[Rfam]
RNA sequence: CCUUAAAGUACUGUAGCAGCACAUCAUGGUUUGCAACACUAUAGUAAAGAUGCGAACCAUUAUUUGCUGCUUUAGAAUUUUAAGG
Number, nucleotide and partner (000 for none) at each position: 001c085002c084003u083004u082005a081006a080007a000008g000009u000010a000011c000012u000013g073014u000015a071016g070017c069018a068019g067020c066021a065022c000023a063024u062025c000026a060027u059028g058029g057030u056031u055032u054033g053034c052035a051036a000037c000038a000039c000040u000041a000042u000043a000044g000045u000046a000047a000048a000049g000050a000051u035052g034053c033054g032055a031056a030057c029058c028059a027060u026061u000062a024063u023064u000065u021066g020067c019068u018069g017070c016071u015072u000073u013074a000075g000076a000077a000078u000079u000080u006081u005082a004083a003084g002085g001
RNA: mir-15 microRNA precursor family